[Rfam]
RNA sequence: UCCAUCGUGAGAUGGAAUCUGAAGGAAGCCAGCGGCAAAGUUCCGGCCUGAGGGACACAAACAGCAUCAGGCGCGAAACGUGGGGUGAGACUGCGCGACAAGUCGAAGCCCAAAAGCUACACGGACACGUCAGCGUAAAUGGUGCGGGUAGAUGGAAUGAAAGUGAAUCAU
Numbered sequence: 001u002c003c004a005u006c007g008u009g010a011g012a013u014g015g016a017a018u019c020u021g022a023a024g025g026a027a028g029c030c031a032g033c034g035g036c037a038a039a040g041u042u043c044c045g046g047c048c049u050g051a052g053g054g055a056c057a058c059a060a061a062c063a064g065c066a067u068c069a070g071g072c073g074c075g076a077a078a079c080g081u082g083g084g085g086u087g088a089g090a091c092u093g094c095g096c097g098a099c100a101a102g103u104c105g106a107a108g109c110c111c112a113a114a115a116g117c118u119a120c121a122c123g124g125a126c127a128c129g130u131c132a133g134c135g136u137a138a139a140u141g142g143u144g145c146g147g148g149u150a151g152a153u154g155g156a157a158u159g160a161a162a163g164u165g166a167a168u169c170a171u
Base pairs, nucleotide, nucleotide: 001016002015003014004013005012006011028171031168035164036163040158041157042156043155044154045153046149047148048147049146050145062144063143065141066140071136072135073134078130079129080128081127082126083111084110085109086108089104090103091102092101
RNA: Group II catalytic intron D1-D4-3